[Rfam]
RNA: Small nucleolar RNA SNORD19
RNA sequence: GAGAAAUGAGGAUAUUUGUUAUGUCUUACUGUUACAGUGAAGACAUCAGAUCCAACUCUGAUCUUGCUUUGUGC
Numbered sequence: 001g002a003g004a005a006a007u008g009a010g011g012a013u014a015u016u017u018g019u020u021a022u023g024u025c026u027u028a029c030u031g032u033u034a035c036a037g038u039g040a041a042g043a044c045a046u047c048a049g050a051u052c053c054a055a056c057u058c059u060g061a062u063c064u065u066g067c068u069u070u071g072u073g074c
Base pairs, nucleotide, nucleotide: 001065002064003063004062